[Rfam]
RNA sequence: CCGGCCGCAGUGCCUGACGGGAGCAGAGCGGCGAACGAGGGCGUCGGCCAUUUUGUGUCUGUUUCCUGUGGGACGCGGUCGUG
Numbered sequence: 001c002c003g004g005c006c007g008c009a010g011u012g013c014c015u016g017a018c019g020g021g022a023g024c025a026g027a028g029c030g031g032c033g034a035a036c037g038a039g040g041g042c043g044u045c046g047g048c049c050a051u052u053u054u055g056u057g058u059c060u061g062u063u064u065c066c067u068g069u070g071g072g073a074c075g076c077g078g079u080c081g082u083g
Stems, first nucleotide, its partner, number of pairs: 002081007010074002014072002017069007024061004028056004033049001036046003
Description
Rfam assigns this 83-nucleotide RNA from Canis lupus to the family "mir-632 microRNA precursor family". Rfam 15.1 lists 126 matches to the family in 126 species. The literature on the family includes a 2010 paper in BMC Res Notes by Brameier, "Genome-wide comparative analysis of microRNAs in three non-human primates". The source organism's lineage runs through Eukaryota, Bilateria, Chordata, Teleostomi and Canis lupus.